The record is a 417-nucleotide RNA from Mangrovibacterium diazotrophicum, which matches "Bacterial RNase P class A" in Rfam. From the family's description: Ribonuclease P (RNase P) is a ubiquitous endoribonuclease, found in archaea, bacteria and eukarya as well as chloroplasts and mitochondria. Lineage of the source: Bacteria > Pseudomonadati > Bacteroidia > Prolixibacteraceae > Mangrovibacterium.

RNA sequence: GCCGCAGACCGUUCUAUCGCUGUCCCGAUCUUGUGUUGGGAUUGAGGAAAGUCCGGGCAACGCAGGGCGCCAUGCUUCCUAACGGGAAGACGGGUGAAAGCUUGUUUCAGCGUAACAGAAAAUAACCGUCCCGAUCUCGUAUCGGGAUAAGGGUGAAAAGGUGAGGUAAGAGCUCACCGGUUCCGGAGGCGACUUCGGAAGCCGUACGCAUCAUGGGUUGCAAGACCAAAUAUAUCACGGUUGGCAUUAUGCCGGCAGGGUUGCCCGCCCUGUUCUGUCCUUUGGGGCAGUCUCGAACUUGUUCGGGAGUCGUGAGGGGUAGGUUGCUAGAUCGUAACAGCAAUGUUGCGGCCAGAUAAAUGAUAGAAGCUCAGCUUCGGUUGAGUACAGAACCCGGCUUACAGGUCUGCAUUUUUU
Numbered sequence: 001g002c003c004g005c006a007g008a009c010c011g012u013u014c015u016a017u018c019g020c021u022g023u024c025c026c027g028a029u030c031u032u033g034u035g036u037u038g039g040g041a042u043u044g045a046g047g048a049a050a051g052u053c054c055g056g057g058c059a060a061c062g063c064a065g066g067g068c069g070c071c072a073u074g075c076u077u078c079c080u081a082a083c084g085g086g087a088a089g090a091c092g093g094g095u096g097a098a099a100g101c102u103u104g105u106u107u108c109a110g111c112g113u114a115a116c117a118g119a120a121a122a123u124a125a126c127c128g129u130c131c132c133g134a135u136c137u138c139g140u141a142u143c144g145g146g147a148u149a150a151g152g153g154u155g156a157a158a159a160g161g162u163g164a165g166g167u168a169a170g171a172g173c174u175c176a177c178c179g180g181u182u183c184c185g186g187a188g189g190c191g192a193c194u195u196c197g198g199a200a201g202c203c204g205u206a207c208g209c210a211u212c213a214u215g216g217g218u219u220g221c222a223a224g225a226c227c228a229a230a231u232a233u234a235u236c237a238c239g240g241u242u243g244g245c246a247u248u249a250u251g252c253c254g255g256c257a258g259g260g261u262u263g264c265c266c267g268c269c270c271u272g273u274u275c276u277g278u279c280c281u282u283u284g285g286g287g288c289a290g291u292c293u294c295g296a297a298c299u300u301g302u303u304c305g306g307g308a309g310u311c312g313u314g315a316g317g318g319g320u321a322g323g324u325u326g327c328u329a330g331a332u333c334g335u336a337a338c339a340g341c342a343a344u345g346u347u348g349c350g351g352c353c354a355g356a357u358a359a360a361u362g363a364u365a366g367a368a369g370c371u372c373a374g375c376u377u378c379g380g381u382u383g384a385g386u387a388c389a390g391a392a393c394c395c396g397g398c399u400u401a402c403a404g405g406u407c408u409g410c411a412u413u414u415u416u417u
Base pairs, nucleotide, nucleotide: 001413004410005409006408007407008406009405010404011402012368013367014366015365016364017363018362020044022042023041024040025039026038027037028036049400050399051398053397054396055395056394057393058220059219060218061217065304066303067302068301070216071215072214073213074212075089076088077087078086079085092103093102094101095100106210110209111208112207113206114205126152127151128148129147130146131145132144133143134142135141160178161177162176163175164174165173180202181200182199183198184197185196186195187194188193224325225324226323227322235315236314237313238312239311298306299305332351333350334349335348336347337346338345339344